[Rfam]
RNA sequence: ACCUAGCCCGGAUGGCAGCGGCAUCCUUUUUAUCCCGAUGACAAUCGGGAGAAAAAGAUAUAGCGAACAGCCGGCAGAGUU
Numbered sequence: 001a002c003c004u005a006g007c008c009c010g011g012a013u014g015g016c017a018g019c020g021g022c023a024u025c026c027u028u029u030u031u032a033u034c035c036c037g038a039u040g041a042c043a044a045u046c047g048g049g050a051g052a053a054a055a056a057g058a059u060a061u062a063g064c065g066a067a068c069a070g071c072c073g074g075c076a077g078a079g080u081u
Stems, first nucleotide, its partner, number of pairs: 009073003013069002018064002023059003029054003033050007
A member of the RNA family "Flavo-1 RNA" from Halpernia frigidisoli, 81 nucleotides long.
It scores 65 bits against the family's covariance model.
The family's RNA type in Rfam is small RNA.